RNA: c-di-GMP-I riboswitch aptamer
RNA sequence: UCAAGAUAAAGGCAAAACUAUUGAAAAAUAGUGACGCAAAGCCAUGGGUCUAAGGGGAUUUCCUAGGAUUGCCAGGCUGCCGAA
Number, nucleotide and partner (000 for none) at each position: 001u000002c000003a000004a000005g000006a000007u000008a000009a000010a000011g000012g037013c036014a000015a000016a000017a032018c031019u030020a029021u028022u027023g000024a000025a000026a000027a022028a021029u020030a019031g018032u017033g000034a000035c000036g013037c012038a000039a000040a078041g077042c076043c075044a000045u074046g073047g072048g069049u068050c067051u000052a000053a000054g000055g063056g062057g061058a000059u000060u000061u057062c056063c055064u000065a000066g000067g050068a049069u048070u000071g000072c047073c046074a045075g043076g042077c041078u040079g000080c000081c000082g000083a000084a000